[Rfam]
RNA sequence: GUUGAAGCUCCAUCUACAAAUGGGUAAGACCGUGUCUUAGUAUAUACGAGUUUUUGAAAAAUAAAAAAAGGAGCAAUACCACCCUUCUUGAUAAAAUAAGAAAGAGGUUAUUGCUCCUUUUUU
Numbered sequence: 001g002u003u004g005a006a007g008c009u010c011c012a013u014c015u016a017c018a019a020a021u022g023g024g025u026a027a028g029a030c031c032g033u034g035u036c037u038u039a040g041u042a043u044a045u046a047c048g049a050g051u052u053u054u055u056g057a058a059a060a061a062u063a064a065a066a067a068a069a070g071g072a073g074c075a076a077u078a079c080c081a082c083c084c085u086u087c088u089u090g091a092u093a094a095a096a097u098a099a100g101a102a103a104g105a106g107g108u109u110a111u112u113g114c115u116c117c118u119u120u121u122u123u
Stems, first nucleotide, its partner, number of pairs: 009024005067120012083104001085102005

The family of this 123-nucleotide RNA sequence from Cicuta virosa is "Plastid-psbA-1 3UTR RNA". The literature on the family includes a 2023 paper in Plant Commun by Richter et al., "Retrograde signaling in plants: A critical review focusing on the GUN pathway and beyond". Plastid psbA-1 is a non-coding RNA (ncRNA) present in plastids. It was identified in inverted repeat sequences in the 3 prime untranslate region (3UTR) of photosystem II quinone-binding protein (psbA).